The record is a 300-nucleotide RNA from Zostera marina, which matches "Plant signal recognition particle RNA" in Rfam. Lineage of the source: Eukaryota > Viridiplantae > Embryophyta > Liliopsida > Zostera.
RNA sequence: GCUGAGCUCGGUAACGUGGGUUUGUCACCAAGUGGAGCAUUAAGGUAUUUGAAUAAUUUGGUAUUGAAUUCAAGGUUGACAUUAUGAGCUAGCUUUGAUUUGCCCGUUUCCAAGUUGGGCAGUGGAUUCUAUGUUUCAGUCUAACGCUUGAAUCAUAUUCUCCCUAAACUUGAGGGUAAUGCGUGAGGCUGGUUUCACAGAGCAGCGAUUAUCUCUAACUCUCAACGGUGGAAGGAUUACAAGUCAUUUGCUCAUAUUGUCAAUUAGCCUUGGAAUCCACCAAAUUCUACAAAUAUUUUU
Numbered sequence: 001g002c003u004g005a006g007c008u009c010g011g012u013a014a015c016g017u018g019g020g021u022u023u024g025u026c027a028c029c030a031a032g033u034g035g036a037g038c039a040u041u042a043a044g045g046u047a048u049u050u051g052a053a054u055a056a057u058u059u060g061g062u063a064u065u066g067a068a069u070u071c072a073a074g075g076u077u078g079a080c081a082u083u084a085u086g087a088g089c090u091a092g093c094u095u096u097g098a099u100u101u102g103c104c105c106g107u108u109u110c111c112a113a114g115u116u117g118g119g120c121a122g123u124g125g126a127u128u129c130u131a132u133g134u135u136u137c138a139g140u141c142u143a144a145c146g147c148u149u150g151a152a153u154c155a156u157a158u159u160c161u162c163c164c165u166a167a168a169c170u171u172g173a174g175g176g177u178a179a180u181g182c183g184u185g186a187g188g189c190u191g192g193u194u195u196c197a198c199a200g201a202g203c204a205g206c207g208a209u210u211a212u213c214u215c216u217a218a219c220u221c222u223c224a225a226c227g228g229u230g231g232a233a234g235g236a237u238u239a240c241a242a243g244u245c246a247u248u249u250g251c252u253c254a255u256a257u258u259g260u261c262a263a264u265u266a267g268c269c270u271u272g273g274a275a276u277c278c279a280c281c282a283a284a285u286u287c288u289a290c291a292a293a294u295a296u297u298u299u300u
Stems, first nucleotide, its partner, number of pairs: 001038003004023007028035002042299010053288001055286001057284006069274009078261004083256003087252003091249002096246007104235002108233005114226006121220003124163003130157004135152005141146001170217001172215004182207003189200003